RNA sequence: CUCUGGAGAGAGGGGCAUGAGCCCCCGCCGAAGGGAUAACGAUCUCAGGCGAAAGGACAGAG
Numbered sequence: 001c002u003c004u005g006g007a008g009a010g011a012g013g014g015g016c017a018u019g020a021g022c023c024c025c026c027g028c029c030g031a032a033g034g035g036a037u038a039a040c041g042a043u044c045u046c047a048g049g050c051g052a053a054a055g056g057a058c059a060g061a062g
Stems, first nucleotide, its partner, number of pairs: 001062005012025004027050003030046002034044002
RNA: Glycine riboswitch aptamer